Background
The record is a 178-nucleotide RNA from Vibrio viridaestus, which matches "Lysine riboswitch aptamer" in Rfam. It scores 86 bits against the family's covariance model. On this family, see Mandal et al., Cell 2003: "Riboswitches Control Fundamental Biochemical Pathways in Bacillus subtilis and Other Bacteria". Pairs were carried over by alignment from the consensus structure, which is taken from published work.
RNA sequence: UCAAGCAGAAGAGGAGCACUACCCAGGUAGAUGUUUUGUGGAGCCUCAACUCCAAUACAUUACAUUCAUGGGGAGUAGUGCCGAGAUAAACCCUAGUUGCGGAUUGGGUUUGUCGGGUGACUGGGCUGAAUCCCAUCAACUGUCAUCAGCUCACCGCUGAUGAAGAGCUUCUGAGGUA
Number, nucleotide and partner (000 for none) at each position: 001u000002c000003a000004a000005g000006c173007a172008g171009a170010a169011g168012a000013g000014g000015a000016g081017c080018a079019c078020u077021a076022c075023c000024c073025a000026g000027g000028u000029a000030g066031a065032u064033g063034u062035u000036u000037u059038g000039u000040g000041g000042a000043g000044c000045c000046u000047c000048a000049a000050c000051u000052c000053c000054a000055a000056u000057a000058c000059a037060u000061u000062a034063c033064a032065u031066u030067c000068a000069u000070g000071g000072g000073g024074a000075g022076u021077a020078g019079u018080g017081c016082c000083g000084a000085g114086a113087u112088a111089a110090a109091c108092c107093c106094u000095a104096g000097u000098u000099g000100c000101g000102g000103a000104u095105u000106g093107g092108g091109u090110u089111u088112g087113u086114c085115g141116g140117g000118u138119g137120a136121c000122u135123g134124g133125g132126c000127u000128g000129a000130a000131u000132c125133c124134c123135a122136u120137c119138a118139a000140c116141u115142g000143u163144c162145a161146u160147c159148a158149g157150c000151u000152c000153a000154c000155c000156g000157c149158u148159g147160a146161u145162g144163a143164a000165g000166a000167g000168c011169u010170u009171c008172u007173g006174a000175g000176g000177u000178a000